[Rfam]
RNA sequence: GGCUCUAUGAUUAAAUGCCUAAUUACGGGCAAUAUACGCUAUUCCGAUGUCAAAUAUGAGCAGAAAAUUCCUUUGAAUGAGGGCU
Numbered sequence: 001g002g003c004u005c006u007a008u009g010a011u012u013a014a015a016u017g018c019c020u021a022a023u024u025a026c027g028g029g030c031a032a033u034a035u036a037c038g039c040u041a042u043u044c045c046g047a048u049g050u051c052a053a054a055u056a057u058g059a060g061c062a063g064a065a066a067a068u069u070c071c072u073u074u075g076a077a078u079g080a081g082g083g084c085u
Base pairs, nucleotide, nucleotide: 001085002084003083004082005081